This 138-nucleotide RNA from Geosporobacter ferrireducens belongs to the Rfam family "c-di-AMP riboswitch aptamer (ydaO/yuaA leader)". Gene Ontology terms of the family: cyclic-di-AMP binding and regulation of gene expression. Taxonomically the source falls in Geosporobacter (Bacteria, Bacillota, Clostridia, Thermotaleaceae).
RNA sequence: CAAUUUGGAACGCUGAGUUCUUUGUAAAAAAGGAACGGGGGAACCAGGUUUUUGGGGUGAAUCUCUUUUCGAAGAGUAGGGUUAUCUUCUUUCGAUCCGAAUCCGUCAGCUAACCUCGUAAGCGUGGAAAGAGGAGAU
Numbered sequence: 001c002a003a004u005u006u007g008g009a010a011c012g013c014u015g016a017g018u019u020c021u022u023u024g025u026a027a028a029a030a031a032g033g034a035a036c037g038g039g040g041g042a043a044c045c046a047g048g049u050u051u052u053u054g055g056g057g058u059g060a061a062u063c064u065c066u067u068u069u070c071g072a073a074g075a076g077u078a079g080g081g082u083u084a085u086c087u088u089c090u091u092u093c094g095a096u097c098c099g100a101a102u103c104c105g106u107c108a109g110c111u112a113a114c115c116u117c118g119u120a121a122g123c124g125u126g127g128a129a130a131g132a133g134g135a136g137a138u
Base pairs, nucleotide, nucleotide: 011124012123013122014121018034019033020032021031022030023029035119036118037117038116039115040114045054046053055104056103057102063076064075065074066073079098080097081096082095